[Rfam]
RNA sequence: GGUCAGUGACGAGUGUUGGCAUGUAUUAUCUGCUCUGAAGUUGAUAUUUAUCACCGCUUUAGCUCUUGAAUUACUCUGAGAACCC
Numbered sequence: 001g002g003u004c005a006g007u008g009a010c011g012a013g014u015g016u017u018g019g020c021a022u023g024u025a026u027u028a029u030c031u032g033c034u035c036u037g038a039a040g041u042u043g044a045u046a047u048u049u050a051u052c053a054c055c056g057c058u059u060u061a062g063c064u065c066u067u068g069a070a071u072u073a074c075u076c077u078g079a080g081a082a083c084c085c
Base pairs, nucleotide, nucleotide: 001084002083003081004080
A member of the RNA family "Small nucleolar RNA SNORD45" from Bubo bubo, 85 nucleotides long. Pairs were carried over by alignment from the consensus structure, which was predicted with PFOLD. The source organism's lineage runs through Eukaryota, Vertebrata, Saurischia, Aves and Bubo. The literature on the family includes a 1996 paper in Cell by Kiss-Laszlo et al., "Site-specific ribose methylation of preribosomal RNA: a novel function for small nucleolar RNAs".